[Rfam]
RNA sequence: AUAAAAGAACAGGGGUGCCUUAAAGGCUGAGAUAUACCCUCAUUAGCUGAUCUGGUUAAUACCAGCGUAGUGAGUUUCUCGUUUUUUAGCA
Numbered sequence: 001a002u003a004a005a006a007g008a009a010c011a012g013g014g015g016u017g018c019c020u021u022a023a024a025g026g027c028u029g030a031g032a033u034a035u036a037c038c039c040u041c042a043u044u045a046g047c048u049g050a051u052c053u054g055g056u057u058a059a060u061a062c063c064a065g066c067g068u069a070g071u072g073a074g075u076u077u078c079u080c081g082u083u084u085u086u087u088a089g090c091a
Base pairs, nucleotide, nucleotide: 006079007078008077009076011040012039013038014037016034017027018026019025020024046071047070048069049068052065053064054063055062
RNA: TPP riboswitch aptamer (THI element)